The family of this 134-nucleotide RNA from Pseudescherichia vulneris is "RtT RNA". It scores 94 bits against the family's covariance model. The family's RNA type in Rfam is cis-regulatory element. Rfam's curators write: This family represents a bacterial cis-regulatory element known as RtT RNA. The exact function of RtT is unknown although it is thought that it may be involved in changing the cellular response in relation to amino acid starvation.
RNA sequence: UUGCAUUUGUGCCCAUGAGGAUGAGAACCUCCGGGGGCAGGGAGGUUCGACCCGAGCAGCGCGAGGGAACGUUGCGCCAGCAACGGCCCGAAGGGCGAGUCACAAAGUGACGAGUAAUCCUCUAUCACCGACCA
Numbered sequence: 001u002u003g004c005a006u007u008u009g010u011g012c013c014c015a016u017g018a019g020g021a022u023g024a025g026a027a028c029c030u031c032c033g034g035g036g037g038c039a040g041g042g043a044g045g046u047u048c049g050a051c052c053c054g055a056g057c058a059g060c061g062c063g064a065g066g067g068a069a070c071g072u073u074g075c076g077c078c079a080g081c082a083a084c085g086g087c088c089c090g091a092a093g094g095g096c097g098a099g100u101c102a103c104a105a106a107g108u109g110a111c112g113a114g115u116a117a118u119c120c121u122c123u124a125u126c127a128c129c130g131a132c133c134a
Base pairs, nucleotide, nucleotide: 015125016124017122018121019120020119022117032097033096046092047091048090049089053063054062070085071084072083073082074081075080